RNA: Small nucleolar RNA SNORD94
Organism: Bucco capensis
RNA sequence: AUGGCCGUGAUGAUUGGCGCAGGGGUACGGACCUCAGCUGCACCAUGGGAGCUGAGUGCAAGCUGUGCCUCUCAGUGCUGCUGGCACGGGGCUGGCUCACUGGGGACAGCCUUGCAUGAGACUUUGCCACAAUCUGAGCCAU
Numbered sequence: 001a002u003g004g005c006c007g008u009g010a011u012g013a014u015u016g017g018c019g020c021a022g023g024g025g026u027a028c029g030g031a032c033c034u035c036a037g038c039u040g041c042a043c044c045a046u047g048g049g050a051g052c053u054g055a056g057u058g059c060a061a062g063c064u065g066u067g068c069c070u071c072u073c074a075g076u077g078c079u080g081c082u083g084g085c086a087c088g089g090g091g092c093u094g095g096c097u098c099a100c101u102g103g104g105g106a107c108a109g110c111c112u113u114g115c116a117u118g119a120g121a122c123u124u125u126g127c128c129a130c131a132a133u134c135u136g137a138g139c140c141a142u
Stems, first nucleotide, its partner, number of pairs: 001142005